Record summary
The record is a 95-nucleotide RNA, which matches "mir-7 microRNA precursor family" in Rfam. Gene Ontology terms of the family: miRNA-mediated post-transcriptional gene silencing and RISC complex. About the family: This family represents the microRNA (miRNA) precursor mir-7.
RNA sequence: UUUACGAUUUACGAUGUACGACUUACGAUUUGUUGCUUACACCAGAAACAGAUGCGUAAGCAACAAAUCGUAAGUCGUACAUCGUAAAUCGUAAA
Numbered sequence: 001u002u003u004a005c006g007a008u009u010u011a012c013g014a015u016g017u018a019c020g021a022c023u024u025a026c027g028a029u030u031u032g033u034u035g036c037u038u039a040c041a042c043c044a045g046a047a048a049c050a051g052a053u054g055c056g057u058a059a060g061c062a063a064c065a066a067a068u069c070g071u072a073a074g075u076c077g078u079a080c081a082u083c084g085u086a087a088a089u090c091g092u093a094a095a
Base pairs, nucleotide, nucleotide: 002094003093004092005091006090007089008088010086011085012084013083014082015081016080017079019077020076021075022074023072025071026070027069028068029067030066031065032064033063034062035061036060037059038058039057